[Rfam]
RNA sequence: AUAUUUACCUGGCAGGAGGGAUCCCAUGAUCACAAAGGUGGUUUUCUCAGAGUGAGACUUAACCAUUGGCUCCGAGGUGCUGAUUCCUGAUAUUUCCCGAAAUGUGAGACGCUAGACUACAUACUUUAUGGUGGUGGGGACCUGAGUUUGCACUCUCCCCU
Numbered sequence: 001a002u003a004u005u006u007a008c009c010u011g012g013c014a015g016g017a018g019g020g021a022u023c024c025c026a027u028g029a030u031c032a033c034a035a036a037g038g039u040g041g042u043u044u045u046c047u048c049a050g051a052g053u054g055a056g057a058c059u060u061a062a063c064c065a066u067u068g069g070c071u072c073c074g075a076g077g078u079g080c081u082g083a084u085u086c087c088u089g090a091u092a093u094u095u096c097c098c099g100a101a102a103u104g105u106g107a108g109a110c111g112c113u114a115g116a117c118u119a120c121a122u123a124c125u126u127u128a129u130g131g132u133g134g135u136g137g138g139g140a141c142c143u144g145a146g147u148u149u150g151c152a153c154u155c156u157c158c159c160c161u
Stems, first nucleotide, its partner, number of pairs: 012120001014118002016048006024041004049088002052085001054084001056081001058079001063077002091114002093111001094109002098106001136160005144153001146151001

This 161-nucleotide RNA from Rhinopithecus bieti belongs to the Rfam family "U1 spliceosomal RNA".
The family is grouped with related families in Rfam's "U1 clan".
Rfam 15.1 lists 40,184 matches to the family in 1,499 species.
About the family: U1 is a small nuclear RNA (snRNA) component of the spliceosome (involved in pre-mRNA splicing). Its 5' end forms complementary base pairs with the 5' splice junction, thus defining the 5' donor site of an intron. There are significant differences in sequence and secondary structure between metazoan and yeast U1 snRNAs, the latter being much longer (568 nucleotides as compared to 164 nucleotides in human).
NCBI's taxonomy places the organism under Eukaryota, Gnathostomata, Teleostomi, Euteleostomi, Rhinopithecus.